[Rfam]
RNA sequence: UGAAGAAUUAUGUAUAAUAACUUUUGCAGAAAAGUGAAAAGAUAAUGGCUAAUCUCUUGAAUAAAGGGGUGAUGCCUAUGGUUCAUAGCUUUAUCUCUAGAUGUAGUAGACAUGUCUGGAUUCGAAAUAUUAUUGCUAAUGGUUGCAUUCGUAACGCUAGUUUUGCUGGGGAUAGACCGUAU
Number, nucleotide and partner (000 for none) at each position: 001u000002g000003a000004a000005g000006a000007a000008u000009u000010a000011u000012g000013u000014a000015u000016a000017a000018u000019a000020a000021c000022u000023u000024u000025u000026g000027c000028a000029g000030a000031a000032a000033a000034g000035u000036g000037a000038a000039a000040a000041g000042a000043u000044a000045a000046u154047g000048g152049c151050u000051a000052a000053u000054c000055u000056c000057u000058u000059g000060a000061a000062u000063a000064a000065a098066g097067g096068g095069g094070u093071g092072a091073u000074g089075c088076c000077u000078a000079u000080g000081g000082u000083u000084c000085a000086u000087a000088g075089c074090u000091u072092u071093a070094u069095c068096u067097c066098u065099a000100g000101a000102u000103g000104u000105a000106g000107u000108a000109g000110a000111c000112a000113u000114g134115u000116c000117u000118g130119g000120a128121u127122u000123c000124g000125a000126a000127a121128u120129a000130u118131u000132a000133u000134u114135g000136c000137u000138a000139a000140u000141g000142g000143u000144u000145g000146c000147a000148u000149u000150c000151g049152u048153a000154a046155c000156g000157c000158u000159a000160g177161u176162u175163u174164u000165g000166c171167u000168g000169g000170g000171g166172a000173u000174a163175g162176a161177c160178c000179g000180u000181a000182u000
RNA: Listeria sRNA rli28
Organism: Enterococcus faecalis